[Rfam]
RNA sequence: UGUCUACAGAAAAUAGCCAAAUCUGAGCAUCAGAAGACUGCCCAGUCUACCUGAUGCAUGAUCUCUGUAGUUCUGAGA
Numbered sequence: 001u002g003u004c005u006a007c008a009g010a011a012a013a014u015a016g017c018c019a020a021a022u023c024u025g026a027g028c029a030u031c032a033g034a035a036g037a038c039u040g041c042c043c044a045g046u047c048u049a050c051c052u053g054a055u056g057c058a059u060g061a062u063c064u065c066u067g068u069a070g071u072u073c074u075g076a077g078a
Stems, first nucleotide, its partner, number of pairs: 027057005035048004